[Rfam]
RNA sequence: UCCGGUCCUCGGUAGUGGUCCCCGGAACUCCCGUGUCCGGGUGCCUCGAUCGAAGACCGCC
Numbered sequence: 001u002c003c004g005g006u007c008c009u010c011g012g013u014a015g016u017g018g019u020c021c022c023c024g025g026a027a028c029u030c031c032c033g034u035g036u037c038c039g040g041g042u043g044c045c046u047c048g049a050u051c052g053a054a055g056a057c058c059g060c061c
Base pairs, nucleotide, nucleotide: 003059004058005057006056007055009053010052011051012050013049017045018044019043021041022040023039024038025037026036